The family of this 89-nucleotide RNA sequence from Microbulbifer sp. THAF38 is "t44 RNA". For this family Rfam cites "Transcriptome analysis of Escherichia coli using high-density oligonucleotide probe arrays" (Tjaden et al., Nucleic Acids Res, 2002). A search with the family's covariance model found it, with a score of 74 bits. This family consists of a number of bacterial RNA genes of between 135 and 170 bases in length. The t44 gene has been identified in several species of enteric bacteria but homologs have also been identified in Pseudomonas and Coxiella species. The t44 gene is found between the map and rpsB genes in all species in the full alignment apart from Shigella flexneri. The function of this RNA is unknown.

RNA sequence: CUUCCGGGGCGGAAAUGCCGCACACGCAUCGACACAUGUGUCUGGGUGCCUCGAAAGGGGUUGACGCAUGGGAUGUGUGGAGGACUAAC
Numbered sequence: 001c002u003u004c005c006g007g008g009g010c011g012g013a014a015a016u017g018c019c020g021c022a023c024a025c026g027c028a029u030c031g032a033c034a035c036a037u038g039u040g041u042c043u044g045g046g047u048g049c050c051u052c053g054a055a056a057g058g059g060g061u062u063g064a065c066g067c068a069u070g071g072g073a074u075g076u077g078u079g080g081a082g083g084a085c086u087a088a089c
Base pairs, nucleotide, nucleotide: 023079024078025077026076027075028074029073030072035070036069037068038067039066040065041064042063048061049060050059051058052057